RNA sequence: UCGUGUCCCUCACCCACCCCUCAAGAUACCAGGUGGGCGCGGGAAUAGUCGAGGGAUC
Numbered sequence: 001u002c003g004u005g006u007c008c009c010u011c012a013c014c015c016a017c018c019c020c021u022c023a024a025g026a027u028a029c030c031a032g033g034u035g036g037g038c039g040c041g042g043g044a045a046u047a048g049u050c051g052a053g054g055g056a057u058c
Base pairs, nucleotide, nucleotide: 006044007043008042009041011039013037014036015035016034017033018032025058026057027056029054030053
The record is a 58-nucleotide RNA from Myotis davidii, which matches "Antizyme RNA frameshifting stimulation element" in Rfam. On this family, see Ivanov et al., J Mol Biol 2004: "Identification of a new antizyme mRNA +1 frameshifting stimulatory pseudoknot in a subset of diverse invertebrates and its apparent absence in intermediate species". The family's RNA type in Rfam is frameshift element. A search with the family's covariance model found it, with a score of 54 bits. Its family is annotated with translational frameshifting in the Gene Ontology. Rfam describes the family as follows. This family represents a structural element which is found in antizyme mRNA and is known to promote frameshifting. Antizyme genes have have two partially overlapping open reading frames, the second, which encodes the functional protein requires +1 translational frameshifting. This frameshift is stimulated by a pseudoknot present 3' of the frameshift site in the antizyme mRNA. The frameshifting efficiency is dependent on the level of polyamines in the cell, when the polyamine concentration is high frameshifting is more likely to occur which leads to an increase in the quantity of functional antizyme produced. The functional antizyme acts to reduce ornithine decarboxylase (ODC) activity which leads to a drop in polyamines present in the cell. Therefore, this family can be thought of as a biosensor for intracellular free polyamines. The family has 13 seed sequences and 1,595 matches in Rfam 15.1.